[Rfam]
RNA sequence: GUGUUAAACUUAUGAGCAAGGAAAAUAACUAUCUGGGGUGAUGCCCGAAUCCUAACUGCUGACACCAGACGAAUUUUUGAGUGGGCAAAGGUUGCCCCUAAGGUGACUCACCUACUUUGCAGGAUGCCUGGGAGUCACUAUCUGCCCG
Numbered sequence: 001g002u003g004u005u006a007a008a009c010u011u012a013u014g015a016g017c018a019a020g021g022a023a024a025a026u027a028a029c030u031a032u033c034u035g036g037g038g039u040g041a042u043g044c045c046c047g048a049a050u051c052c053u054a055a056c057u058g059c060u061g062a063c064a065c066c067a068g069a070c071g072a073a074u075u076u077u078u079g080a081g082u083g084g085g086c087a088a089a090g091g092u093u094g095c096c097c098c099u100a101a102g103g104u105g106a107c108u109c110a111c112c113u114a115c116u117u118u119g120c121a122g123g124a125u126g127c128c129u130g131g132g133a134g135u136c137a138c139u140a141u142c143u144g145c146c147c148g
Base pairs, nucleotide, nucleotide: 002021004019005018031050032049034047035046036045037044052068053067082148083147084146085145086144089143090142091141092140094138098132099131101129102128103127104126105125107123108122111119

This 148-nucleotide sequence from Carlito syrichta belongs to the Rfam family "U12 minor spliceosomal RNA". The family is grouped with related families in Rfam's "U2 clan". The source organism's lineage runs through Eukaryota, Tetrapoda, Euarchontoglires, Tarsiiformes and Carlito. It scores 84 bits against the family's covariance model. On this family, see Otake et al., Mol Cell 2002: "The divergent U12-type spliceosome is required for pre-mRNA splicing and is essential for development in Drosophila". The family has 62 seed sequences and 2,106 matches in Rfam 15.1. Rfam links the family to the GO terms pre-mRNA branch point binding, mRNA branch site recognition and U12 snRNP.